[Rfam]
RNA sequence: CGAGUUGGUUAGGCGAUCGCUGUCGCAAUGCGGCAGAGGAAAGUCCGGGCUCCAACGGGUCAGAGUGCCAGGUAACGCCUGGGGGACGUGAGUCCACGGAAAGUGCAGCAGAAAGGAAACCGCCGGGCAUUGUCCGGUAAGGGUGAAAAGGUGCGGUAAGAGCGCACCGCGCGGCUGGCAACAGGCGUGGCGAUGGUAAACCCCACUCGGAGCAAGACCAAAUAGGAAUCCAAUAGCCGUGACCCUCGGCGGAUUCGGGUAGGUCGCUUCAGGCGGGCGGUGACGCCCGUCGCAGAUGAAUGAUCGUCCAAGACAGAACCCGGCUUAUCGACCAACUCACUAU
Numbered sequence: 001c002g003a004g005u006u007g008g009u010u011a012g013g014c015g016a017u018c019g020c021u022g023u024c025g026c027a028a029u030g031c032g033g034c035a036g037a038g039g040a041a042a043g044u045c046c047g048g049g050c051u052c053c054a055a056c057g058g059g060u061c062a063g064a065g066u067g068c069c070a071g072g073u074a075a076c077g078c079c080u081g082g083g084g085g086a087c088g089u090g091a092g093u094c095c096a097c098g099g100a101a102a103g104u105g106c107a108g109c110a111g112a113a114a115g116g117a118a119a120c121c122g123c124c125g126g127g128c129a130u131u132g133u134c135c136g137g138u139a140a141g142g143g144u145g146a147a148a149a150g151g152u153g154c155g156g157u158a159a160g161a162g163c164g165c166a167c168c169g170c171g172c173g174g175c176u177g178g179c180a181a182c183a184g185g186c187g188u189g190g191c192g193a194u195g196g197u198a199a200a201c202c203c204c205a206c207u208c209g210g211a212g213c214a215a216g217a218c219c220a221a222a223u224a225g226g227a228a229u230c231c232a233a234u235a236g237c238c239g240u241g242a243c244c245c246u247c248g249g250c251g252g253a254u255u256c257g258g259g260u261a262g263g264u265c266g267c268u269u270c271a272g273g274c275g276g277g278c279g280g281u282g283a284c285g286c287c288c289g290u291c292g293c294a295g296a297u298g299a300a301u302g303a304u305c306g307u308c309c310a311a312g313a314c315a316g317a318a319c320c321c322g323g324c325u326u327a328u329c330g331a332c333c334a335a336c337u338c339a340c341u342a343u
Base pairs, nucleotide, nucleotide: 002338003337004336005335006334007333008332009331010330011328012308013307014306015305016304017303018302020036021035022034023033024032025031026030041326042325043324045323046322047321048320049319050212051211052210053209058245059244063208064207065206066205067204068082069081070080071079072078083097084095085094086093087092098203099202103201104200105197106196120142121141122138123137124136125135126134127133128132150168151167152166153165154164155163169191170189171188172187173186175184176183177182216265217264218263219262226256227255228254229253230252231251236250237249238248239247272291273290274289275288276287277286278285279284

A member of the RNA family "Bacterial RNase P class A" from Luminiphilus syltensis, 343 nucleotides long. NCBI's taxonomy places the organism under Bacteria, Pseudomonadota, Cellvibrionales, Halieaceae, Luminiphilus syltensis. Gene Ontology terms of the family: dimeric ribonuclease P complex, tRNA processing and ribonuclease P activity. The family's consensus secondary structure is taken from published work.